[Rfam]
RNA sequence: GCACUUGCUUAUAAAUACAAAUAACUCAGUGCAGAUUGGCUUGUCACCAUGCUGAGAAUAUAUGAAUAGUGAGUUGCGGUAUAAUACGAUAGUUUUAUACUGCAGCUUCUGGAAUGAUGUGAAUCAUAAACAGAAAGACGGAAACCGUCAAAACUAAAUAUAUGUACAAUAAUAUAUUGCCGUAAAACGCAAUUGCCAGAUCGCUGACAUAAUAGACGACUCCAGUGGAGUAAUAAUCGUGAUGCCUGUAUCGGUGGAAUGUUACAGAGAGAUAAGUAGCGAAAAUCCAAAUAAGUCAGUUGCGUCGUUGAUCGGAAGAAAUUCCAGUAUAAGAUCUGUCGAAUGUACGAGUAGCCCAAAGUGACGUGAGAUUAAUACAUAAAGAACAAAAAAAUUAAAUCUUAUUAUGAAUUUUCUUAAUACGCUGAAUGACAUGGGUGAAAGUUUCUCGUAAUCAGUCGAGGCUACAAUUGCUGUUUAUCAGAUGUAAAGGAAGUCUAAGGGUAGCUCCCUUAUUCUCAGCCCUUUACAAGUAGUGGCGGAAUAUUAUGACGAUAUAUUUGAGUAGGAAGAAGUUCCAUUUGUAUUUAUAAUCAAGU
Numbered sequence: 001g002c003a004c005u006u007g008c009u010u011a012u013a014a015a016u017a018c019a020a021a022u023a024a025c026u027c028a029g030u031g032c033a034g035a036u037u038g039g040c041u042u043g044u045c046a047c048c049a050u051g052c053u054g055a056g057a058a059u060a061u062a063u064g065a066a067u068a069g070u071g072a073g074u075u076g077c078g079g080u081a082u083a084a085u086a087c088g089a090u091a092g093u094u095u096u097a098u099a100c101u102g103c104a105g106c107u108u109c110u111g112g113a114a115u116g117a118u119g120u121g122a123a124u125c126a127u128a129a130a131c132a133g134a135a136a137g138a139c140g141g142a143a144a145c146c147g148u149c150a151a152a153a154c155u156a157a158a159u160a161u162a163u164g165u166a167c168a169a170u171a172a173u174a175u176a177u178u179g180c181c182g183u184a185a186a187a188c189g190c191a192a193u194u195g196c197c198a199g200a201u202c203g204c205u206g207a208c209a210u211a212a213u214a215g216a217c218g219a220c221u222c223c224a225g226u227g228g229a230g231u232a233a234u235a236a237u238c239g240u241g242a243u244g245c246c247u248g249u250a251u252c253g254g255u256g257g258a259a260u261g262u263u264a265c266a267g268a269g270a271g272a273u274a275a276g277u278a279g280c281g282a283a284a285a286u287c288c289a290a291a292u293a294a295g296u297c298a299g300u301u302g303c304g305u306c307g308u309u310g311a312u313c314g315g316a317a318g319a320a321a322u323u324c325c326a327g328u329a330u331a332a333g334a335u336c337u338g339u340c341g342a343a344u345g346u347a348c349g350a351g352u353a354g355c356c357c358a359a360a361g362u363g364a365c366g367u368g369a370g371a372u373u374a375a376u377a378c379a380u381a382a383a384g385a386a387c388a389a390a391a392a393a394a395u396u397a398a399a400u401c402u403u404a405u406u407a408u409g410a411a412u413u414u415u416c417u418u419a420a421u422a423c424g425c426u427g428a429a430u431g432a433c434a435u436g437g438g439u440g441a442a443a444g445u446u447u448c449u450c451g452u453a454a455u456c457a458g459u460c461g462a463g464g465c466u467a468c469a470a471u472u473g474c475u476g477u478u479u480a481u482c483a484g485a486u487g488u489a490a491a492g493g494a495a496g497u498c499u500a501a502g503g504g505u506a507g508c509u510c511c512c513u514u515a516u517u518c519u520c521a522g523c524c525c526u527u528u529a530c531a532a533g534u535a536g537u538g539g540c541g542g543a544a545u546a547u548u549a550u551g552a553c554g555a556u557a558u559a560u561u562u563g564a565g566u567a568g569g570a571a572g573a574a575g576u577u578c579c580a581u582u583u584g585u586a587u588u589u590a591u592a593a594u595c596a597a598g599u
Stems, first nucleotide, its partner, number of pairs: 010593001014589002020583002025056005037049003058163006074105004079100006086093002106133002110129001114127005137149005172561001178555001185548001192344003197338006203300006219231004237282004242277001246271002249268001252267001253265001255289004303366005314325004348444001354439005424523004447539001448464002465536003468484001486533001490528004496519001499515006568579004
The family of this 599-nucleotide RNA sequence from Mediterraneibacter gnavus is "ROOL RNA".
By type it is a small RNA.
Rfam's curators write: Firmicutes, Fusobacteria (1 example), Tenericutes (1 example).